[Rfam]
RNA sequence: UGAAUAAACAUCAUUGAGUGCAGCGUUGAUGUAAUUUACUUUUCUUUUGUCUAUUGUUGAAUGGACUAAAGCAAUUUACACCAGCGUUGCGCUCAAUUAUGUUUUUC
Numbered sequence: 001u002g003a004a005u006a007a008a009c010a011u012c013a014u015u016g017a018g019u020g021c022a023g024c025g026u027u028g029a030u031g032u033a034a035u036u037u038a039c040u041u042u043u044c045u046u047u048u049g050u051c052u053a054u055u056g057u058u059g060a061a062u063g064g065a066c067u068a069a070a071g072c073a074a075u076u077u078a079c080a081c082c083a084g085c086g087u088u089g090c091g092c093u094c095a096a097u098u099a100u101g102u103u104u105u106u107c
Stems, first nucleotide, its partner, number of pairs: 006104006013097016030080003